About this RNA: This 203-nucleotide RNA sequence from Anaerovirgula multivorans belongs to the Rfam family "raiA RNA". Pairs were carried over by alignment from the consensus structure, which is taken from published work.
[Rfam]
RNA sequence: CAAUUGAAGGUCUGUGGUUGCAAGUCCAAGCCAGUCGCAGGCAAAAGGACCCACGUAAGAUAGUAAAAAUCGCUAUUGAGCAUGGUGCGGCUUAGAGGUAAGUCCUGCCGGAGUAGUGCCGAGAGGAGUAGUAGUGAUGGUGAACCCAAAGCAAACCUUCCAGCAGGCGAGUGUGGGGGCAAAGACCAGGUCAGCUUCUGCUG
Number, nucleotide and partner (000 for none) at each position: 001c203002a202003a000004u200005u000006g198007a197008a196009g195010g000011u000012c194013u193014g192015u188016g187017g186018u185019u184020g000021c000022a000023a000024g000025u000026c000027c000028a174029a000030g172031c041032c000033a092034g091035u090036c089037g088038c087039a086040g000041g031042c000043a000044a000045a000046a000047g000048g000049a000050c085051c084052c000053a000054c000055g000056u000057a000058a077059g076060a000061u000062a074063g073064u072065a000066a000067a000068a000069a000070u000071c000072g064073c063074u062075a000076u059077u058078g000079a000080g000081c000082a000083u181084g051085g050086u039087g038088c037089g036090g035091c034092u033093u000094a000095g000096a000097g000098g000099u000100a000101a000102g000103u000104c167105c166106u165107g164108c163109c121110g120111g119112a000113g117114u000115a000116g000117u113118g000119c111120c110121g109122a000123g000124a000125g160126g159127a158128g157129u000130a000131g000132u000133a000134g152135u151136g000137a000138u000139g000140g000141u000142g000143a000144a000145c000146c000147c000148a000149a000150a000151g135152c134153a000154a000155a000156c000157c128158u127159u126160c125161c000162a000163g108164c107165a106166g105167g104168c000169g000170a000171g000172u030173g000174u028175g000176g000177g000178g000179g000180c000181a083182a000183a000184g019185a018186c017187c016188a015189g000190g000191u000192c014193a013194g012195c009196u008197u007198c006199u000200g004201c000202u002203g001